[Rfam]
RNA sequence: CAACCGAAGGUCUCCUUCGGCAUAAUAAAAACGAUGAAAUUCCUCUUUGACGGGCCAAUAGAGAUAUUGGCCAUUUUUUU
Number, nucleotide and partner (000 for none) at each position: 001c000002a000003a000004c000005c000006g000007a017008a016009g015010g014011u000012c000013u000014c010015c009016u008017u007018c000019g000020g000021c000022a000023u000024a000025a000026u031027a000028a000029a000030a000031a026032c000033g000034a000035u000036g000037a000038a000039a000040u000041u000042c000043c000044u000045c000046u000047u000048u000049g000050a000051c000052g000053g072054g071055c070056c069057a068058a067059u066060a065061g000062a000063g000064a000065u060066a059067u058068u057069g056070g055071c054072c053073a000074u000075u000076u000077u000078u000079u000080u000
A member of the RNA family "sroB RNA" from Enterobacter cancerogenus, 80 nucleotides long. Rfam classes the family as a small RNA. The family's consensus secondary structure was predicted with LocARNA.